Notes:
This 54-nucleotide RNA sequence from Barnesiella viscericola belongs to the Rfam family "Enterococcus sRNA 55". Rfam classes the family as a small RNA. For this family Rfam cites "Whole-genome mapping of 5' RNA ends in bacteria by tagged sequencing: a comprehensive view in Enterococcus faecalis" (Innocenti et al., RNA, 2015).
RNA sequence: UAUAUAUUUUGGUUAGGUAGCCACCUCGCUGUGAAGCGAGGUGGUUGCUUUUUA
Numbered sequence: 001u002a003u004a005u006a007u008u009u010u011g012g013u014u015a016g017g018u019a020g021c022c023a024c025c026u027c028g029c030u031g032u033g034a035a036g037c038g039a040g041g042u043g044g045u046u047g048c049u050u051u052u053u054a
Stems, first nucleotide, its partner, number of pairs: 015049002018047013

The organism belongs to Barnesiella viscericola, within Bacteria.
The family's consensus secondary structure was predicted with RNAfold.